[Rfam]
Nucleotides: 130
Base pairs, nucleotide, nucleotide: 011115012114013113014112019028020027031109032108033107034106035105040049050095051094052093058071059070060069061068074089075088076087
Number, partner (000 for none) and nucleotide at each position: 001000u002000g003000a004000g005000c006000g007000a008000u009000a010000a011115a012114g013113c014112c015000g016000a017000a018000u019028c020027c021000a022000g023000c024000u025000c026000a027020g028019g029000u030000a031109c032108g033107g034106g035105g036000g037000a038000a039000c040049c041000g042000u043000u044000u045000g046000u047000a048000a049040g050095g051094g052093g053000u054000g055000a056000a057000a058071c059070u060069c061068a062000u063000u064000u065000u066000u067000u068061u069060g070059a071058g072000u073000a074089g075088g076087g077000a078000g079000a080000a081000c082000c083000u084000c085000a086000a087076c088075c089074c090000u091000a092000a093052c094051c095050c096000g097000u098000c099000a100000g101000c102000u103000a104000a105035c106034c107033u108032c109031g110000g111000a112014g113013g114012c115011u116000g117000u118000g119000a120000g121000a122000g123000g124000a125000g126000c127000c128000g129000u130000a